[Rfam]
RNA sequence: CGGUUGGGAGGGCUGCCAUGGAGCAGUCCGUUGAGGCUUGGCCCUCACCCGGCCG
Numbered sequence: 001c002g003g004u005u006g007g008g009a010g011g012g013c014u015g016c017c018a019u020g021g022a023g024c025a026g027u028c029c030g031u032u033g034a035g036g037c038u039u040g041g042c043c044c045u046c047a048c049c050c051g052g053c054c055g
Base pairs, nucleotide, nucleotide: 001055002054003053004052005051006050007049008048010029011028012027013026014025015024016023032047033046034045035044036043
Rfam assigns this 55-nucleotide RNA from Skermanella aerolata to the family "DUF3800-VI RNA". Pairs were carried over by alignment from the consensus structure, which is taken from published work. It is annotated as a cis-regulatory element. The source organism's lineage runs through Bacteria, Pseudomonadati, Pseudomonadota, Rhodospirillales and Skermanella. The match comes from Rfam's covariance-model search (60 bits).